Shown here is an 88-nucleotide RNA sequence from Camellia sinensis, a member of the family "small nucleolar RNA snoR126". For this family Rfam cites "Mining small RNA sequencing data: a new approach to identify small nucleolar RNAs in Arabidopsis" (Chen and Wu, Nucleic Acids Res, 2009). Gene Ontology terms of the family: RNA processing and nucleolus. By type it is a C/D-box small nucleolar RNA.
[Rfam]
Nucleotides: 088
Base pairs, nucleotide, nucleotide: 001087002086003085004084
Number, partner (000 for none) and nucleotide at each position: 001087g002086g003085g004084c005000g006000a007000u008000g009000a010000a011000g012000a013000c014000a015000u016000a017000a018000a019000u020000c021000g022000u023000u024000u025000c026000u027000c028000g029000a030000u031000c032000c033000u034000g035000a036000u037000u038000u039000u040000c041000g042000a043000u044000u045000a046000u047000a048000a049000u050000a051000u052000c053000g054000u055000u056000a057000u058000c059000u060000g061000a062000u063000g064000a065000c066000c067000u068000a069000u070000u071000u072000g073000u074000g075000c076000g077000u078000g079000u080000c081000u082000g083000a084004g085003c086002c087001u088000u